[Rfam]
RNA sequence: ACAAGCCCUCGUUAGGUGAGGCUCCUGUAUGAAGAUAAGCUACUGCCCAGAAACGUCUAAAGACGCCAACGGGUCAGCAGGAACGAUCGAGCUAAGGUCGUUUUUAAUGUAGCUGGUUUUCGCCUAUGUCAUACAGUGCUAAAGCUCUACGAAGGAGGUUAUGG
Numbered sequence: 001a002c003a004a005g006c007c008c009u010c011g012u013u014a015g016g017u018g019a020g021g022c023u024c025c026u027g028u029a030u031g032a033a034g035a036u037a038a039g040c041u042a043c044u045g046c047c048c049a050g051a052a053a054c055g056u057c058u059a060a061a062g063a064c065g066c067c068a069a070c071g072g073g074u075c076a077g078c079a080g081g082a083a084c085g086a087u088c089g090a091g092c093u094a095a096g097g098u099c100g101u102u103u104u105u106a107a108u109g110u111a112g113c114u115g116g117u118u119u120u121c122g123c124c125u126a127u128g129u130c131a132u133a134c135a136g137u138g139c140u141a142a143a144g145c146u147c148u149a150c151g152a153a154g155g156a157g158g159u160u161a162u163g164g
Base pairs, nucleotide, nucleotide: 005160007158008157009156010155011150012149013095015146016145017144020140021139022138025136026135027134028133029132030131031130032129039113040112041111042110043109045074046073047072048071054065055064056063057062080104081103082102083101086098087097088096115124116123117122
Annotation:
Rfam assigns this 164-nucleotide RNA from Savagea serpentis to the family "M-box riboswitch aptamer (ykoK leader)". Pairs were carried over by alignment from the consensus structure. It scores 139 bits against the family's covariance model. From the family's description: M-box riboswitch, also know as ykoK leader is described as a metaloregulatory RNA that sense divalent metals and function as a genetic control element of genes related to divalent metal transport in bacteria. It was first reported upstream of the B.subtilis ykoK gene and genes with related functions in other bacteria.